[Rfam]
RNA sequence: GCUUGAUGAUGAUACGUUAUUAGACUGAGCAAACUGUAGUUGGUCCUUCGUUUGCACAGUUGAUGUUAGCCUGUUUCAAGACGGGACUGAGAGCAGC
Numbered sequence: 001g002c003u004u005g006a007u008g009a010u011g012a013u014a015c016g017u018u019a020u021u022a023g024a025c026u027g028a029g030c031a032a033a034c035u036g037u038a039g040u041u042g043g044u045c046c047u048u049c050g051u052u053u054g055c056a057c058a059g060u061u062g063a064u065g066u067u068a069g070c071c072u073g074u075u076u077c078a079a080g081a082c083g084g085g086a087c088u089g090a091g092a093g094c095a096g097c
Stems, first nucleotide, its partner, number of pairs: 001094004
Overview
A member of the RNA family "Small nucleolar RNA SNORD21" from Denticeps clupeoides, 97 nucleotides long. Its family is annotated with RNA processing and nucleolus in the Gene Ontology. The family's consensus secondary structure was predicted with PFOLD. The literature on the family includes a 1994 paper in Nucleic Acids Res by Qu et al., "U21, a novel small nucleolar RNA with a 13 nt. complementarity to 28S rRNA, is encoded in an intron of ribosomal protein L5 gene in chicken and mammals".